A member of the RNA family "Bacterial large signal recognition particle RNA" from Desulfobacca acetoxidans, 261 nucleotides long. NCBI's taxonomy places the organism under Bacteria, Desulfobaccia, Desulfobaccales, Desulfobacca, Desulfobacca acetoxidans. The family's consensus secondary structure is taken from published work. Rfam's curators write: The signal recognition particle (SRP) is a universally conserved ribonucleoprotein involved in the co-translational targeting of proteins to membranes. The literature on the family includes a 2009 paper in RNA Biol by Rosenblad et al., "Kinship in the SRP RNA family".
Nucleotides: 261
Base pairs, nucleotide, nucleotide: 001261002260003259004258005257006256009057010056011055012030013029014028015027017025018024019023035054036053037052038051063254064253065252067251068250069249070248073245074244075243076242077241082237083236084235085234086233087232088231089230090229100221101220102219103218106214112208113207114206115205116204117203118202119201122195123194124193125192126191127189128188130187131186133184134183136179137178138177139176140175146171147170148169149168154163155162156161
Number, partner (000 for none) and nucleotide at each position: 001261u002260c003259g004258u005257g006256c007000u008000a009057g010056a011055c012030g013029g014028g015027g016000a017025g018024c019023u020000a021000g022000c023019g024018g025017u026000g027015c028014c029013c030012u031000g032000u033000u034000g035054c036053c037052c038051g039000a040000g041000a042000u043000c044000c045000g046000c047000u048000u049000a050000g051038c052037g053036g054035g055011g056010u057009u058000g059000a060000a061000u062000u063254c064253c065252c066000a067251c068250u069249c070248a071000a072000a073245g074244g075243a076242u077241u078000g079000c080000a081000g082237c083236g084235u085234u086233g087232u088231u089230c090229g091000g092000g093000u094000c095000c096000u097000g098000a099000a100221c101220g102219c103218c104000a105000a106214g107000c108000g109000g110000g111000g112208g113207a114206a115205u116204u117203g118202g119201a120000c121000c122195c123194c124193a125192c126191g127189c128188a129000a130187c131186g132000g133184a134183c135000g136179c137178u138177u139176g140175u141000g142000a143000a144000c145000c146171c147170c148169g149168u150000c151000a152000g153000g154163u155162c156161c157000g158000g159000a160000a161156g162155g163154a164000a165000g166000c167000a168149g169148c170147g171146g172000u173000a174000a175140g176139c177138a178137a179136g180000g181000c182000g183134g184133u185000g186131c187130g188128u189127g190000u191126c192125g193124u194123g195122g196000c197000g198000g199000c200000u201119u202118c203117u204116a205115a206114u207113u208112c209000a210000a211000a212000a213000c214106c215000c216000u217000u218103g219102g220101c221100g222000u223000c224000c225000a226000g227000u228000u229090c230089g231088a232087g233086c234085g235084a236083u237082g238000g239000c240000g241077g242076a243075u244074u245073c246000g247000a248070u249069g250068a251067g252065g253064g254063g255000u256006g257005c258004a259003c260002g261001g